The family of this 78-nucleotide RNA from Cucumis melo is "Small nucleolar RNA Z102/R77". Lineage of the source: Eukaryota > Streptophytina > Gunneridae > Pentapetalae > Cucumis. It is annotated as a C/D-box small nucleolar RNA. Its Rfam clan is "SNORD44 clan". It scores 63 bits against the family's covariance model. Gene Ontology terms of the family: RNA processing and nucleolus. A reference for the family is Chen et al. (2003), "The high diversity of snoRNAs in plants: identification and comparative study of 120 snoRNA genes from Oryza sativa", Nucleic Acids Res. The family's consensus secondary structure was predicted with PFOLD.

RNA sequence: GAAUGAUGUGAGGAACAUACUUUUUGUUUUGAUUGCUGUGAUGAUGGCAAUUUUUGUAUUAGCUCUAUCUGAUCAUUC
Number, nucleotide and partner (000 for none) at each position: 001g000002a077003a076004u075005g074006a000007u000008g000009u000010g000011a000012g000013g000014a000015a000016c000017a000018u000019a000020c000021u000022u000023u000024u000025u000026g000027u000028u000029u000030u000031g000032a000033u000034u049035g048036c047037u046038g000039u000040g000041a000042u000043g000044a000045u000046g037047g036048c035049a034050a000051u000052u000053u000054u000055u000056g000057u000058a000059u000060u000061a000062g000063c000064u000065c000066u000067a000068u000069c000070u000071g000072a000073u000074c005075a004076u003077u002078c000